Clostridiales-3 RNA: a 238-nucleotide RNA. Pairs were carried over by alignment from the consensus structure, which is taken from published work. The sequence is in the family's curated seed alignment. By type it is a small RNA.

RNA sequence: UAGUAGUUUGAUGUAUCGAGAGAUGAAGAACGAGGAGCAGGAUACAAGUAUGAUAAAAGGAAUCACAGACAUUCCGUAAGGAUAAUAACCCAUGGAGGGCGAAGAUAUCGUCCUUAUCCUCGGAAGGCAAGUUAGAGGAGAUAGUGUUGCUAGAAAUAGCAAGGCGUCGUGAAAUGCACAGCAGCUCGUCUGUAGUUCCUUAGUAUGCGGGGCGAAUAGGAUAAAACGCAUACCUACA
Number, nucleotide and partner (000 for none) at each position: 001u000002a000003g000004u000005a000006g031007u030008u029009u028010g000011a000012u000013g000014u000015a024016u023017c022018g000019a000020g000021a000022g017023a016024u015025g000026a000027a000028g009029a008030a007031c006032g000033a000034g000035g000036a000037g000038c000039a000040g000041g000042a000043u000044a000045c000046a000047a000048g000049u000050a000051u000052g000053a000054u000055a000056a000057a000058a000059g000060g000061a000062a000063u000064c000065a000066c000067a000068g000069a000070c000071a000072u000073u000074c000075c000076g000077u000078a000079a000080g000081g000082a000083u000084a000085a000086u000087a000088a000089c000090c000091c171092a170093u169094g000095g115096a114097g113098g112099g111100c110101g109102a108103a000104g000105a000106u000107a000108u102109c101110g100111u099112c098113c097114u096115u095116a000117u139118c138119c137120u136121c135122g000123g000124a000125a000126g000127g000128c000129a000130a000131g000132u000133u000134a000135g121136a120137g119138g118139a117140g168141a167142u166143a000144g165145u164146g000147u162148u161149g160150c159151u158152a000153g000154a000155a000156a000157u000158a151159g150160c149161a148162a147163g000164g145165c144166g142167u141168c140169g093170u092171g091172a000173a000174a000175u183176g182177c181178a000179c000180a000181g177182c176183a175184g000185c000186u000187c000188g000189u000190c000191u000192g000193u000194a000195g000196u000197u000198c000199c000200u000201u000202a000203g233204u232205a231206u230207g229208c228209g227210g000211g000212g000213c000214g000215a000216a000217u000218a000219g000220g000221a000222u000223a000224a000225a000226a000227c209228g208229c207230a206231u205232a204233c203234c000235u000236a000237c000238a000